RNA sequence: GCGCCCGUAGCUCAGGUGGAUAGAGCAGCGGUUUCCUAAACCGCGUGCCGGUGGUUCGAGUCCGCCCGGGCGCA
Numbered sequence: 001g002c003g004c005c006c007g008u009a010g011c012u013c014a015g016g017u018g019g020a021u022a023g024a025g026c027a028g029c030g031g032u033u034u035c036c037u038a039a040a041c042c043g044c045g046u047g048c049c050g051g052u053g054g055u056u057c058g059a060g061u062c063c064g065c066c067c068g069g070g071c072g073c074a
Stems, first nucleotide, its partner, number of pairs: 001073007010026004028044005050066005
The record is a 74-nucleotide RNA sequence from Methylomusa anaerophila, which matches "tRNA" in Rfam. The family's RNA type in Rfam is transfer RNA. Pairs were carried over by alignment from the consensus structure, which is taken from published work. The match comes from Rfam's covariance-model search (61 bits).